[Rfam]
RNA sequence: GGCGGGGACGACGGGAGGAAAGGGGGGCGUGGUUUCAUGUAGGUCCUCACUCCUCCCCUCCCGUCUUCCCCUUCU
Numbered sequence: 001g002g003c004g005g006g007g008a009c010g011a012c013g014g015g016a017g018g019a020a021a022g023g024g025g026g027g028c029g030u031g032g033u034u035u036c037a038u039g040u041a042g043g044u045c046c047u048c049a050c051u052c053c054u055c056c057c058c059u060c061c062c063g064u065c066u067u068c069c070c071c072u073u074c075u
Stems, first nucleotide, its partner, number of pairs: 004071005010065009022055001024054004029050003
Dot-bracket structure: ...(((((.(((((((((...(.((((.(((................)))))))).))))))))).)))))....
Description
Shown here is a 75-nucleotide sequence from Suricata suricatta, a member of the family "mir-483 microRNA precursor family". The match comes from Rfam's covariance-model search (81 bits). Lineage of the source: Eukaryota > Euteleostomi > Eutheria > Laurasiatheria > Suricata. Gene Ontology terms of the family: miRNA-mediated post-transcriptional gene silencing and RISC complex.